[Rfam]
RNA sequence: AUACAAUGAUGAUAAUUUUUUCAUCAUCAGCAUGUCACCUAAUGAGUGUUAAUACUUUGGGUCUAAGGGG
Numbered sequence: 001a002u003a004c005a006a007u008g009a010u011g012a013u014a015a016u017u018u019u020u021u022c023a024u025c026a027u028c029a030g031c032a033u034g035u036c037a038c039c040u041a042a043u044g045a046g047u048g049u050u051a052a053u054a055c056u057u058u059g060g061g062u063c064u065a066a067g068g069g070g
Stems, first nucleotide, its partner, number of pairs: 002069001004067001008025004
This 70-nucleotide RNA sequence from Microcebus murinus belongs to the Rfam family "Small nucleolar RNA SNORD56". Rfam links the family to the GO terms RNA processing and nucleolus.